[Rfam]
RNA sequence: UUUGGGGAAACCGAAAACCAUAAAUAGAGUAGGUA
Numbered sequence: 001u002u003u004g005g006g007g008a009a010a011c012c013g014a015a016a017a018c019c020a021u022a023a024a025u026a027g028a029g030u031a032g033g034u035a
Base pairs, nucleotide, nucleotide: 003020004019005018010034011033012032
RNA: DUF805b RNA